[Rfam]
The record is a 92-nucleotide RNA from Vitis vinifera, which matches "Small nucleolar RNA Z221/R21b" in Rfam. Taxonomically the source falls in Vitis (Eukaryota, Streptophyta, Mesangiospermae, Viteae). Rfam 15.1 lists 588 matches to the family in 222 species. Rfam links the family to the GO terms RNA processing and nucleolus. Pairs were carried over by alignment from the consensus structure, which was predicted with WAR.
RNA sequence: GGGCAGUGAUGAGAUUGAAGAAAGUCAUGCACCACUCUGAUUGAUCAAAUCUGUGCUGAUAAAUCUUUCUUACCCAUUUUUUUUCUGAGCCC
Numbered sequence: 001g002g003g004c005a006g007u008g009a010u011g012a013g014a015u016u017g018a019a020g021a022a023a024g025u026c027a028u029g030c031a032c033c034a035c036u037c038u039g040a041u042u043g044a045u046c047a048a049a050u051c052u053g054u055g056c057u058g059a060u061a062a063a064u065c066u067u068u069c070u071u072a073c074c075c076a077u078u079u080u081u082u083u084u085c086u087g088a089g090c091c092c
Stems, first nucleotide, its partner, number of pairs: 001092004